Rfam assigns this 82-nucleotide sequence from Ovis aries to the family "Small nucleolar RNA SNORD116". Gene Ontology terms of the family: nucleolus and RNA processing. The family has 48 seed sequences and 3,260 matches in Rfam 15.1. On this family, see Cavaille et al., Proc Natl Acad Sci U S A 2000: "Identification of brain-specific and imprinted small nucleolar RNA genes exhibiting an unusual genomic organization". The family's consensus secondary structure was predicted with PFOLD. The organism belongs to Ovis, within Eukaryota.
RNA sequence: GGAUUGAUGAUGACUUUAAAAAUAGAUCUCAUUGGAAUCUGAACAAAAUGAAUGACUAAGUCACUUAUGUGAACUGAGGUCC
Numbered sequence: 001g002g003a004u005u006g007a008u009g010a011u012g013a014c015u016u017u018a019a020a021a022a023u024a025g026a027u028c029u030c031a032u033u034g035g036a037a038u039c040u041g042a043a044c045a046a047a048a049u050g051a052a053u054g055a056c057u058a059a060g061u062c063a064c065u066u067a068u069g070u071g072a073a074c075u076g077a078g079g080u081c082c
Stems, first nucleotide, its partner, number of pairs: 001082005029051002032046003